[Rfam]
RNA sequence: GUGGAAGGCCGGACGGCCGCGCGGGGGCGACCCUGCGAGGAAAGUCCGGACUCGCUGAAGCGCCGGUGCCGGGUAACUCCCGGGCAGGGCAACCUGACGGAAAGCGCCACAGAGAACAGACCGCCCCGGGCUUGUCCCGGGGUCAGGGUGAAACGGUGGGGUAAGAGCCCACCACGGCCUUGGCAACAAGGGCGGUGAUGGCAAGCCCCACCGGGAGCAAUGCCAAAUAGGGACCCCGCGCCCGCCUGAUCCCGCCCGGGUUUCCCGGGCAUCGGGAUAUCGGGGCAGGGCCGCUUCAGCCCGAGGGGUCCGGGUUGGCAGCACGAGCCGGCGGGCAACCGUCGGCCCAGAGGAAUGGUCGUCGAGCCGGGGCGCGAGCCCCGGGGAACAGAAUCCGGCUUACAGGCCUUCCACGCGC
Numbered sequence: 001g002u003g004g005a006a007g008g009c010c011g012g013a014c015g016g017c018c019g020c021g022c023g024g025g026g027g028c029g030a031c032c033c034u035g036c037g038a039g040g041a042a043a044g045u046c047c048g049g050a051c052u053c054g055c056u057g058a059a060g061c062g063c064c065g066g067u068g069c070c071g072g073g074u075a076a077c078u079c080c081c082g083g084g085c086a087g088g089g090c091a092a093c094c095u096g097a098c099g100g101a102a103a104g105c106g107c108c109a110c111a112g113a114g115a116a117c118a119g120a121c122c123g124c125c126c127c128g129g130g131c132u133u134g135u136c137c138c139g140g141g142g143u144c145a146g147g148g149u150g151a152a153a154c155g156g157u158g159g160g161g162u163a164a165g166a167g168c169c170c171a172c173c174a175c176g177g178c179c180u181u182g183g184c185a186a187c188a189a190g191g192g193c194g195g196u197g198a199u200g201g202c203a204a205g206c207c208c209c210a211c212c213g214g215g216a217g218c219a220a221u222g223c224c225a226a227a228u229a230g231g232g233a234c235c236c237c238g239c240g241c242c243c244g245c246c247u248g249a250u251c252c253c254g255c256c257c258g259g260g261u262u263u264c265c266c267g268g269g270c271a272u273c274g275g276g277a278u279a280u281c282g283g284g285g286c287a288g289g290g291c292c293g294c295u296u297c298a299g300c301c302c303g304a305g306g307g308g309u310c311c312g313g314g315u316u317g318g319c320a321g322c323a324c325g326a327g328c329c330g331g332c333g334g335g336c337a338a339c340c341g342u343c344g345g346c347c348c349a350g351a352g353g354a355a356u357g358g359u360c361g362u363c364g365a366g367c368c369g370g371g372g373c374g375c376g377a378g379c380c381c382c383g384g385g386g387a388a389c390a391g392a393a394u395c396c397g398g399c400u401u402a403c404a405g406g407c408c409u410u411c412c413a414c415g416c417g418c
Base pairs, nucleotide, nucleotide: 001414002413003412004411005410006409007408008407009406010405011403012363013362014361015360016359017358018357020037021036022035023034024033025032026031042401043400044399046398047397048396049395050394051217052216053215055214060296062294064213065212066211067210068209069083070082071081072080073079084098085096086095087094088093099208100207104206105205106202107201108200121147122146123143124142125141126140127139128138129137130136155173156172157171158170159169160168174196175194176193178191179190180189181188182187221320222319223318224317231311232310233309234308235307236306288302289301290300291299327346328345329344330343331342332341333340334339

Shown here is a 418-nucleotide RNA sequence from Thetidibacter halocola, a member of the family "Bacterial RNase P class A". The base pairs follow the family's consensus structure, which is taken from published work. The match comes from Rfam's covariance-model search (254 bits). The family's RNA type in Rfam is ribozyme.